[Rfam]
RNA sequence: CGUCUGGUCCGAGGAUCCGGUGCUGACCGGAUCCUGGUGCAAAAAGGGA
Numbered sequence: 001c002g003u004c005u006g007g008u009c010c011g012a013g014g015a016u017c018c019g020g021u022g023c024u025g026a027c028c029g030g031a032u033c034c035u036g037g038u039g040c041a042a043a044a045a046g047g048g049a
Stems, first nucleotide, its partner, number of pairs: 013034008
The family of this 49-nucleotide sequence from Streptomyces sp. H-KF8 is "raiA-hairpin RNA".